[Rfam]
RNA: Plasmodium RNA of unknown function RUF6-5
RNA sequence: AGCUGCCUCAGUAGCCCAAUCGUUAGGUAUGUUGCCUUUCCUUGUGAGAACGUUGGUUCGACUCCGCUUGCCGACAAUUUCAUAGGAAAAGUUGCAAAUCGAGCUGUUGGGUUACCCGGAGGGGGGCGGCGCAAUUUUAAAAAUUUUUUUUUUUU
Numbered sequence: 001a002g003c004u005g006c007c008u009c010a011g012u013a014g015c016c017c018a019a020u021c022g023u024u025a026g027g028u029a030u031g032u033u034g035c036c037u038u039u040c041c042u043u044g045u046g047a048g049a050a051c052g053u054u055g056g057u058u059c060g061a062c063u064c065c066g067c068u069u070g071c072c073g074a075c076a077a078u079u080u081c082a083u084a085g086g087a088a089a090a091g092u093u094g095c096a097a098a099u100c101g102a103g104c105u106g107u108u109g110g111g112u113u114a115c116c117c118g119g120a121g122g123g124g125g126g127c128g129g130c131g132c133a134a135u136u137u138u139a140a141a142a143a144u145u146u147u148u149u150u151u152u153u154u155u
Stems, first nucleotide, its partner, number of pairs: 002130008011115005017109004022104003026100003030096003034092002037090003041086009052075006059066002116122002